[Rfam]
RNA sequence: CUCAGGGUGGAGGGGUCCCUCAGUUGGGAUUGUGAGAGGGUGCAGGCCAGGCUGAGGGACCCCACCAAUGCACA
Numbered sequence: 001c002u003c004a005g006g007g008u009g010g011a012g013g014g015g016u017c018c019c020u021c022a023g024u025u026g027g028g029a030u031u032g033u034g035a036g037a038g039g040g041u042g043c044a045g046g047c048c049a050g051g052c053u054g055a056g057g058g059a060c061c062c063c064a065c066c067a068a069u070g071c072a073c074a
Base pairs, nucleotide, nucleotide: 006069008067009066010065012063013062014061015060016059017058018057019056020055021054022053023052024051025050027048028047030045031044032043033042034041
The family of this 74-nucleotide sequence from Myotis myotis is "mir-9193 microRNA precursor family".
The match comes from Rfam's covariance-model search (78 bits).
The organism belongs to Myotis, within Eukaryota.